Rfam assigns this 114-nucleotide sequence from Anguilla anguilla to the family "Potassium channel RNA editing signal". The family's consensus secondary structure is taken from published work. Lineage of the source: Eukaryota > Eumetazoa > Actinopteri > Anguillidae > Anguilla.

RNA sequence: AUUGGCUACGGCGACAUGUAUCCAGUAACUUGGCCUGGCAUGGUAGUUGGAGGACUGUGUGCUGUGACGGGUGUACUGACCCUCGCCCUGCCUGUUCCUGCCUUGGUGAACAAC
Number, nucleotide and partner (000 for none) at each position: 001a000002u113003u000004g111005g000006c000007u108008a107009c106010g000011g104012c000013g102014a000015c100016a099017u000018g097019u000020a095021u094022c000023c000024a000025g000026u000027a000028a000029c000030u000031u000032g000033g000034c000035c000036u000037g077038g076039c000040a074041u000042g000043g000044u000045a000046g000047u000048u000049g063050g062051a000052g000053g000054a000055c000056u000057g000058u000059g000060u000061g000062c050063u049064g000065u000066g000067a000068c000069g000070g000071g000072u000073g000074u040075a000076c038077u037078g000079a000080c000081c000082c000083u000084c000085g000086c000087c000088c000089u000090g000091c000092c000093u000094g021095u020096u000097c018098c000099u016100g015101c000102c013103u000104u011105g000106g009107u008108g007109a000110a000111c004112a000113a002114c000
On this family, see Bhalla et al., Nat Struct Mol Biol 2004: "Control of human potassium channel inactivation by editing of a small mRNA hairpin".